[Rfam]
A member of the RNA family "MIR1435 microRNA precursor family" from Oryza rufipogon, 197 nucleotides long. Its family is annotated with RISC complex and miRNA-mediated post-transcriptional gene silencing in the Gene Ontology. The family's consensus secondary structure was predicted with RNAalifold.

RNA sequence: UGGGUUUGUCCUAAGCCAAACUUCUCCAUGUUUGUCAAACUUAAUAGAAAAGUUCAGCAGCAUUUCCAACACAAAACAAAUAUAAUAUAAAAAUAUAUUCAAUGGACUUAAUGAAACUAAUUAGAUGCUGUAGAUGUUGCUAUGUUUUUCUAUAAGCUUGGUCAAACUUGAAGAAGUUUGACUUAGGACAAACCCAA
Number, nucleotide and partner (000 for none) at each position: 001u000002g000003g000004g000005u192006u191007u190008g189009u188010c000011c186012u185013a184014a183015g182016c000017c180018a179019a178020a177021c176022u175023u174024c173025u172026c000027c000028a000029u000030g000031u166032u165033u164034g163035u000036c000037a000038a000039a000040c000041u000042u000043a000044a000045u152046a151047g150048a149049a148050a147051a146052g145053u000054u000055c000056a141057g140058c000059a138060g137061c136062a135063u134064u133065u132066c000067c130068a129069a000070c000071a000072c124073a000074a122075a121076a000077c000078a000079a000080a000081u000082a000083u000084a000085a000086u000087a000088u000089a000090a000091a000092a000093a000094u000095a000096u000097a000098u000099u000100c000101a000102a000103u000104g000105g000106a000107c000108u000109u000110a000111a000112u000113g000114a000115a000116a000117c000118u000119a000120a000121u075122u074123a000124g072125a000126u000127g000128c000129u068130g067131u000132a065133g064134a063135u062136g061137u060138u059139g000140c057141u056142a000143u000144g000145u052146u051147u050148u049149u048150c047151u046152a045153u000154a000155a000156g000157c000158u000159u000160g000161g000162u000163c034164a033165a032166a031167c000168u000169u000170g000171a000172a025173g024174a023175a022176g021177u020178u019179u018180g017181a000182c015183u014184u013185a012186g011187g000188a009189c008190a007191a006192a005193c000194c000195c000196a000197a000